[Rfam]
RNA sequence: GAUGGAAAAUGAAGCAAAACUAUCCUAUACACUGAACCAGAUGUAGACCACAACUCCGCUUAUUAUCUGAUUCCUUC
Numbered sequence: 001g002a003u004g005g006a007a008a009a010u011g012a013a014g015c016a017a018a019a020c021u022a023u024c025c026u027a028u029a030c031a032c033u034g035a036a037c038c039a040g041a042u043g044u045a046g047a048c049c050a051c052a053a054c055u056c057c058g059c060u061u062a063u064u065a066u067c068u069g070a071u072u073c074c075u076u077c
Base pairs, nucleotide, nucleotide: 004074005073006072007071